[Rfam]
RNA sequence: CUCUAUGAUGAUCCCCAUGUACAAAGCAUAGUUCAACUGAAGGUCCUCGGAUCGCUGAACGAUAAACCCAUCACCAUCUUUCACCUUGUCUGAUA
Numbered sequence: 001c002u003c004u005a006u007g008a009u010g011a012u013c014c015c016c017a018u019g020u021a022c023a024a025a026g027c028a029u030a031g032u033u034c035a036a037c038u039g040a041a042g043g044u045c046c047u048c049g050g051a052u053c054g055c056u057g058a059a060c061g062a063u064a065a066a067c068c069c070a071u072c073a074c075c076a077u078c079u080u081u082c083a084c085c086u087u088g089u090c091u092g093a094u095a
Base pairs, nucleotide, nucleotide: 006021007020008018009017010016031060032059033058034057035056042053043052044051045050
Background:
A member of the RNA family "A. fumigatus snoRNA Afu_263" from Microsporum canis, 95 nucleotides long. The family's RNA type in Rfam is C/D-box small nucleolar RNA. Rfam links the family to the GO terms RNA processing and nucleolus. A reference for the family is Jochl et al. (2008), "Small ncRNA transcriptome analysis from Aspergillus fumigatus suggests a novel mechanism for regulation of protein synthesis", Nucleic Acids Res. Rfam's curators put it in the seed alignment. Taxonomically the source falls in Microsporum canis (Eukaryota, Opisthokonta, Eurotiomycetes, Onygenales).